The family of this 77-nucleotide RNA sequence from Geotrypetes seraphini is "mir-192/215 microRNA precursor family".
A reference for the family is Lagos-Quintana et al. (2003), "New microRNAs from mouse and human", RNA.
Rfam links the family to the GO terms miRNA-mediated post-transcriptional gene silencing and RISC complex.
The base pairs follow the family's consensus structure, which was predicted with PFOLD.
The family has 48 seed sequences and 810 matches in Rfam 15.1.
RNA sequence: ACAGGAAAAUGACCUAUGACUUGACAGCCAGUGUGUCUUCAGAAUUUGUCUGUCAUUUCUGUGGGUCAAUACUCUGU
Dot-bracket structure: (((((..(.((.((((.((..((((((.(((..............))).))))))..))..)))).)).)..)))))